[Rfam]
RNA sequence: AGGUCAUCUCAAAGAGGGCUUGUGGGACCAAAACCAGGAGCUCUUAACGCUGUGACCAAAGAUUGAAGUUCUCCAUAGGAUAUAAUAGUCACUCAGUAGUGCUAUGUUUUCCUGAGGAGAUACAUCC
Dot-bracket structure: .((((((......((((((((.(..(........).)))))))))......))))))............(((((..((((....((((.((((....))))))))....))))..))))).......
RNA: Small nucleolar RNA SNORA25
Organism: Equus caballus